The family of this 199-nucleotide sequence from Rhizobium sp. NFR07 is "Rhizobiales sRNA Atu_C9". It is annotated as a small RNA. A search with the family's covariance model found it, with a score of 98 bits.
[Rfam]
RNA sequence: GGUCAACGCAAGGAGGCAGACAUGGGACGUACUUACCCCCUCAAUCUCCUGGUAGUCGGUGCAGCAUUCGUGUUCGUGGCUUCGAUGCUUUUCAUCUAGCCCUGAGUCUGCACACAUCCUGCCAGUCGUAUCUUGCAUCCAAGAACGUUUGAUAUGACAGCCUUUCCAAAGACGCAUGCUCCUUAAGAGCAUGCGUUUU
Numbered sequence: 001g002g003u004c005a006a007c008g009c010a011a012g013g014a015g016g017c018a019g020a021c022a023u024g025g026g027a028c029g030u031a032c033u034u035a036c037c038c039c040c041u042c043a044a045u046c047u048c049c050u051g052g053u054a055g056u057c058g059g060u061g062c063a064g065c066a067u068u069c070g071u072g073u074u075c076g077u078g079g080c081u082u083c084g085a086u087g088c089u090u091u092u093c094a095u096c097u098a099g100c101c102c103u104g105a106g107u108c109u110g111c112a113c114a115c116a117u118c119c120u121g122c123c124a125g126u127c128g129u130a131u132c133u134u135g136c137a138u139c140c141a142a143g144a145a146c147g148u149u150u151g152a153u154a155u156g157a158c159a160g161c162c163u164u165u166c167c168a169a170a171g172a173c174g175c176a177u178g179c180u181c182c183u184u185a186a187g188a189g190c191a192u193g194c195g196u197u198u199u
Base pairs, nucleotide, nucleotide: 015048016047018045024040025039026038169199170198171197172196173195174194175193176192177191178190179189180188181187